The family of this 92-nucleotide RNA from Hyphomicrobium facile is "Selenocysteine transfer RNA". The source organism's lineage runs through Bacteria, Pseudomonadati, Alphaproteobacteria, Hyphomicrobiaceae and Hyphomicrobium.
[Rfam]
RNA sequence: GGAGGUGAAGCGUCCCCGGUGGGGCGUUCGGACUUCAAAUCCGAGUGGGGCAGCGAGCCUGUCCCAGGUGGGUUCGACUCCCACUCGCCUCC
Dot-bracket structure: ((((((((..((((((....))))))((((((.......)))))).(((((.........)))))...((((.......)))).))))))))